[Rfam]
This 506-nucleotide RNA from Nannocystis pusilla belongs to the Rfam family "Saccharopolyspora sRNA 350".
RNA sequence: UUGACCGUGUAGCCCCACGUGUCGUUCUCCUCGACCAGGUUCUGGUCGCCGAAGUGGGCGCCGUCGGCCAGCACGCCGAGCACGGUCUCGUCGCCGUACUUGCCGGUGCCGAGCUUGUUGACCUUGCCGUGGGCGAUGAGGAACACCUGGUCGGCCGGCUUGCCCGCCUCGACCAGCACCUCGCCGGCCUUGUACUCGCGCUGCACGAACUUGCCGGCCAGGGCGGACAGCGCCUCGACGUCGUCGAACCCGCGCAGCAGCGGCAGCUCGGUCAGCUCCUGCGGCACCACCGACACCUUGGCGCCGACGUUGGUGAAGCUGAGGCGGCCGUCGCCGACCGCGUAGCUGAGCCGGCGGUUGACGCGGUAGACGCCGCCCGCGGCGCGCACCCACGGCAGCAGCUUGAGCAGCCACCGCGAGCUGAUUCCUUGCAUCUGCGGCUCCGACUUGGUCGUCGUCGCCAAUCCGCGCCGCUGCGGUCGCUAGGCUGGUCUGGUGCGCGCUAU
Numbered sequence: 001u002u003g004a005c006c007g008u009g010u011a012g013c014c015c016c017a018c019g020u021g022u023c024g025u026u027c028u029c030c031u032c033g034a035c036c037a038g039g040u041u042c043u044g045g046u047c048g049c050c051g052a053a054g055u056g057g058g059c060g061c062c063g064u065c066g067g068c069c070a071g072c073a074c075g076c077c078g079a080g081c082a083c084g085g086u087c088u089c090g091u092c093g094c095c096g097u098a099c100u101u102g103c104c105g106g107u108g109c110c111g112a113g114c115u116u117g118u119u120g121a122c123c124u125u126g127c128c129g130u131g132g133g134c135g136a137u138g139a140g141g142a143a144c145a146c147c148u149g150g151u152c153g154g155c156c157g158g159c160u161u162g163c164c165c166g167c168c169u170c171g172a173c174c175a176g177c178a179c180c181u182c183g184c185c186g187g188c189c190u191u192g193u194a195c196u197c198g199c200g201c202u203g204c205a206c207g208a209a210c211u212u213g214c215c216g217g218c219c220a221g222g223g224c225g226g227a228c229a230g231c232g233c234c235u236c237g238a239c240g241u242c243g244u245c246g247a248a249c250c251c252g253c254g255c256a257g258c259a260g261c262g263g264c265a266g267c268u269c270g271g272u273c274a275g276c277u278c279c280u281g282c283g284g285c286a287c288c289a290c291c292g293a294c295a296c297c298u299u300g301g302c303g304c305c306g307a308c309g310u311u312g313g314u315g316a317a318g319c320u321g322a323g324g325c326g327g328c329c330g331u332c333g334c335c336g337a338c339c340g341c342g343u344a345g346c347u348g349a350g351c352c353g354g355c356g357g358u359u360g361a362c363g364c365g366g367u368a369g370a371c372g373c374c375g376c377c378c379g380c381g382g383c384g385c386g387c388a389c390c391c392a393c394g395g396c397a398g399c400a401g402c403u404u405g406a407g408c409a410g411c412c413a414c415c416g417c418g419a420g421c422u423g424a425u426u427c428c429u430u431g432c433a434u435c436u437g438c439g440g441c442u443c444c445g446a447c448u449u450g451g452u453c454g455u456c457g458u459c460g461c462c463a464a465u466c467c468g469c470g471c472c473g474c475u476g477c478g479g480u481c482g483c484u485a486g487g488c489u490g491g492u493c494u495g496g497u498g499c500g501c502g503c504u505a506u
Stems, first nucleotide, its partner, number of pairs: 007389004012385002015382002019328002022322003026318001028316002035313004041307002045305001047303006054233002061226004065111004075103001077102004082097005118221003122217002129210002131206001133204003138199001140197001143196001150191001153189007161178002166173001235295001240290002243287002249283001251281002254278001256277003261270002329342003351379001353377005391431002394428002397425001399423003403418001407415001437474004443468001445466002448464005475505002479499002482497005

Rfam links the family to the GO term regulation of secondary metabolite biosynthetic process. NCBI's taxonomy places the organism under Bacteria, Polyangia, Nannocystales, Nannocystaceae, Nannocystis.